[Rfam]
RNA sequence: GGAUGUGAGGGUGAUCUGGCUGAGACAUCUGUCACCCCAUUGAUCACCAGGGUUAAUUAGGCUGAUCUGGCUGACUAGGCAGCUGUCUCCUUCCUCCCUCACCACUCCAUGUGCAUCCCUCCCAAAGCUGCGUGCUCGAUCAAAGAGGAUGACCUUCCCCGACAGAGAUGUACCAUUCAUUGGUCAAGGGUACAUGGUAGCUGCGCUCCCCUGCUAGAACCUCCAAACAAGCUCAAGGUCUGUUUGAAGGAGAAUGCAGGGUGGACAAGCUUGGAAAAAAUG
Numbered sequence: 001g002g003a004u005g006u007g008a009g010g011g012u013g014a015u016c017u018g019g020c021u022g023a024g025a026c027a028u029c030u031g032u033c034a035c036c037c038c039a040u041u042g043a044u045c046a047c048c049a050g051g052g053u054u055a056a057u058u059a060g061g062c063u064g065a066u067c068u069g070g071c072u073g074a075c076u077a078g079g080c081a082g083c084u085g086u087c088u089c090c091u092u093c094c095u096c097c098c099u100c101a102c103c104a105c106u107c108c109a110u111g112u113g114c115a116u117c118c119c120u121c122c123c124a125a126a127g128c129u130g131c132g133u134g135c136u137c138g139a140u141c142a143a144a145g146a147g148g149a150u151g152a153c154c155u156u157c158c159c160c161g162a163c164a165g166a167g168a169u170g171u172a173c174c175a176u177u178c179a180u181u182g183g184u185c186a187a188g189g190g191u192a193c194a195u196g197g198u199a200g201c202u203g204c205g206c207u208c209c210c211c212u213g214c215u216a217g218a219a220c221c222u223c224c225a226a227a228c229a230a231g232c233u234c235a236a237g238g239u240c241u242g243u244u245u246g247a248a249g250g251a252g253a254a255u256g257c258a259g260g261g262u263g264g265a266c267a268a269g270c271u272u273g274g275a276a277a278a279a280a281u282g
Stems, first nucleotide, its partner, number of pairs: 001108003005102007013093002018090002024087004029082005036073001037070003042067004047061002117170001119167003123138001125136001127135002140162002147158003200270003206264002209261006221252004228246004
The record is a 282-nucleotide RNA sequence from Calypte anna, which matches "7SK RNA" in Rfam. For this family Rfam cites "Transcription: surprising role for an elusive small nuclear RNA" (Blencowe, Curr Biol, 2002). Taxonomically the source falls in Calypte (Eukaryota, Opisthokonta, Sarcopterygii, Neognathae). It is annotated as a non-coding RNA gene. About the family: 7SK was discovered as an abundant small nuclear RNA in the mid-70s but a possible function has only recently been suggested. Two independent studies have found that 7SK RNA binds the CDK9/cyclin T complex (known as elongation factor P-TEFb). P-TEFb activates transcription by phosphorylating the C-terminal domain of RNA polymerase II. This process is negatively regulated by the 7SK RNP. The secondary structure of 7SK RNA shown here was proposed by Wasserman and Steitz on the basis of chemical modification and enzymatic cleavage experiments. Pairs were carried over by alignment from the consensus structure, which is taken from published work.